The family of this 80-nucleotide sequence from Crocodylus porosus is "Mammalian CPEB3 ribozyme". The organism belongs to Crocodylus, within Eukaryota.
[Rfam]
Nucleotides: 080
Base pairs, nucleotide, nucleotide: 016048019046020045024080025079026078027077028076029075030074031043032042033041052069053068054067055066056065057064
Number, partner (000 for none) and nucleotide at each position: 001000a002000g003000a004000g005000g006000u007000c008000a009000c010000a011000a012000g013000u014000u015000u016048g017000a018000a019046g020045c021000c022000a023000c024080a025079g026078c027077a028076g029075a030074a031043g032042c033041a034000u035000u036000c037000a038000c039000a040000g041033u042032g043031c044000a045020g046019c047000c048016c049000u050000a051000u052069c053068a054067g055066a056065u057064u058000c059000u060000a061000a062000c063000a064057a065056a066055u067054c068053u069052g070000u071000g072000a073000a074030u075029u076028c077027u078026g079025c080024u